[Rfam]
RNA: mir-30 microRNA precursor family
RNA sequence: GCAGUUCAUGUAAACAUCCUACACUCAGCUGUAGUACACGGACUGGCUGGGCGGAGGAUGUUUACUUCAGCUGA
Numbered sequence: 001g002c003a004g005u006u007c008a009u010g011u012a013a014a015c016a017u018c019c020u021a022c023a024c025u026c027a028g029c030u031g032u033a034g035u036a037c038a039c040g041g042a043c044u045g046g047c048u049g050g051g052c053g054g055a056g057g058a059u060g061u062u063u064a065c066u067u068c069a070g071c072u073g074a
Base pairs, nucleotide, nucleotide: 002073003072004071005070006069008067010065011064012063013062014061015060016059017058018057019056020055022053024051025050026049027048028047029046030045
Dot-bracket structure: .(((((.(.(((((((((((.(.(((((((..............))))))).).))))))))))).).))))).